[Rfam]
RNA sequence: ACAACCAGCGAGGGGUGCCUCCAGCGUAUGAGCUGCUCCCAUGUUCAUCAUGCUGGUCGCUGAGAUUAUACCCUUAAUUACCUGAUCCGGGUCAUACCGGCGGAGGGACUGCUGUAGUUCAUGCUU
Numbered sequence: 001a002c003a004a005c006c007a008g009c010g011a012g013g014g015g016u017g018c019c020u021c022c023a024g025c026g027u028a029u030g031a032g033c034u035g036c037u038c039c040c041a042u043g044u045u046c047a048u049c050a051u052g053c054u055g056g057u058c059g060c061u062g063a064g065a066u067u068a069u070a071c072c073c074u075u076a077a078u079u080a081c082c083u084g085a086u087c088c089g090g091g092u093c094a095u096a097c098c099g100g101c102g103g104a105g106g107g108a109c110u111g112c113u114g115u116a117g118u119u120c121a122u123g124c125u126u
Stems, first nucleotide, its partner, number of pairs: 006114005011074004016068001017060002021056007081106003087100004

Background: Rfam assigns this 126-nucleotide RNA to the family "TPP riboswitch aptamer (THI element)". It scores 55 bits against the family's covariance model.